A member of the RNA family "Small nucleolar RNA SNORA51" from Neotoma lepida, 134 nucleotides long. Pairs were carried over by alignment from the consensus structure, which was predicted with PFOLD. ACA51 is a member of the H/ACA class of snoRNA that guide the sites of modification of uridines to pseudouridines. Gene Ontology terms of the family: RNA processing and nucleolus. A search with the family's covariance model found it, with a score of 110 bits.
RNA sequence: GGCUUCUUUAUCCUUAACAACAGGUUGCUUUCCUAUUCUGUCUGUAUAGAAAGAGAAGGCAGAGUAAACCCAUCCCGUGUACACCUCAGUCCAGGCUACUGUACCUAGCCUGUAUUGUGAAUGGGGAGACCUUG
Number, nucleotide and partner (000 for none) at each position: 001g000002g060003c059004u058005u057006c000007u055008u054009u000010a000011u000012c000013c000014u000015u000016a000017a000018c000019a000020a000021c044022a043023g042024g000025u000026u000027g038028c000029u000030u035031u000032c000033c000034u000035a030036u000037u000038c027039u000040g000041u000042c023043u022044g021045u000046a000047u000048a000049g000050a000051a000052a000053g000054a008055g007056a000057a005058g004059g003060c002061a000062g000063a000064g000065u000066a000067a000068a000069c000070c000071c000072a000073u126074c125075c124076c123077g122078u121079g000080u000081a000082c000083a000084c000085c000086u000087c112088a111089g110090u000091c108092c000093a106094g105095g104096c000097u000098a000099c000100u000101g000102u000103a000104c095105c094106u093107a000108g091109c000110c089111u088112g087113u000114a000115u000116u000117g000118u000119g000120a000121a078122u077123g076124g075125g074126g073127a000128g000129a000130c000131c000132u000133u000134g000